[Rfam]
RNA sequence: UUAACUCAAAUAUGUAUGGAGUUGGAACGUUUGCCUACGUUUGCCGCUAGGGGCGCUGCUCAGACUCCAUACAAAUUUGGGUUA
Number, nucleotide and partner (000 for none) at each position: 001u000002u000003a000004a000005c000006u000007c000008a078009a077010a076011u075012a000013u073014g072015u071016a070017u000018g068019g000020a066021g065022u064023u063024g000025g061026a060027a000028c058029g057030u000031u000032u000033g000034c052035c051036u050037a000038c000039g047040u046041u000042u000043g000044c000045c000046g040047c039048u000049a000050g036051g035052g034053g000054c000055g000056c000057u029058g028059c000060u026061c025062a000063g023064a022065c021066u020067c000068c018069a000070u016071a015072c014073a013074a000075a011076u010077u009078u008079g000080g000081g000082u000083u000084a000
About this RNA:
Rfam assigns this 84-nucleotide RNA from Bombyx mori to the family "mir-2807 microRNA precursor family". A reference for the family is Cai et al. (2010), "Novel microRNAs in silkworm (Bombyx mori)", Funct Integr Genomics. NCBI's taxonomy places the organism under Eukaryota, Panarthropoda, Altocrustacea, Ditrysia, Bombyx.